Source information
A member of the RNA family "ybhL leader" from Rhizobium sp. SEMIA4064, 70 nucleotides long. Rfam links the family to the GO term regulation of gene expression. A search with the family's covariance model found it, with a score of 61 bits. By type it is a cis-regulatory leader.
RNA sequence: CAGGCAUGCUGGAGCUCCGCAGCGGCGCCUGGGACAAAGUGCCCGACACGCUACUCACAUCGGAGCUUGA
Numbered sequence: 001c002a003g004g005c006a007u008g009c010u011g012g013a014g015c016u017c018c019g020c021a022g023c024g025g026c027g028c029c030u031g032g033g034a035c036a037a038a039g040u041g042c043c044c045g046a047c048a049c050g051c052u053a054c055u056c057a058c059a060u061c062g063g064a065g066c067u068u069g070a
Stems, first nucleotide, its partner, number of pairs: 012068008025049001030045003